Rfam assigns this 101-nucleotide RNA from Ornithinibacillus halophilus to the family "Purine riboswitch aptamer". The match comes from Rfam's covariance-model search (85 bits).
[Rfam]
RNA sequence: AUUAUUAAUUUAAUAUUUUUGCGUAUAAUUUAGGGAAUACGGCCCAAAGUUUCUACCAGACUACCGUAAAUGGUCUGACUACGCAGAUUGAGUAAUGAUUA
Numbered sequence: 001a002u003u004a005u006u007a008a009u010u011u012a013a014u015a016u017u018u019u020u021g022c023g024u025a026u027a028a029u030u031u032a033g034g035g036a037a038u039a040c041g042g043c044c045c046a047a048a049g050u051u052u053c054u055a056c057c058a059g060a061c062u063a064c065c066g067u068a069a070a071u072g073g074u075c076u077g078a079c080u081a082c083g084c085a086g087a088u089u090g091a092g093u094a095a096u097g098a099u100u101a
Stems, first nucleotide, its partner, number of pairs: 018087008029048003033045003057077007
Riboswitches are metabolite binding domains within certain messenger RNAs that serve as precision sensors for their corresponding targets. Pairs were carried over by alignment from the consensus structure, which is taken from published work.